[Rfam]
RNA sequence: GUAAAUAAAGAUUUACGAAGUCAUGAGUUUAUCGAGCAAUCAAUCCCCAAUUCAAUCAAAAUAUUGUUUUCUCUCUCUCCAUAAACAAAUAGUAUUUUUGAUAUGAUGGCUCGGCAGACAAAAUGACGAUGUCAGUUGUCUUUGUUUGGAUAUCACAUUAGCUGAUUGUAAAAUCAGUAUUAAAGCCCGGCUUGCCGGGUUUUUU
Dot-bracket structure: .(((((((((((..(((..(((((..((((.((((((.((((............(((((((((((((((.................)))))))).))))))).)))).)))))).))))...)))))..))).....)))))))))))............(((((((....)))))))...(((((((((....)))))))))..
RNA: FasX small RNA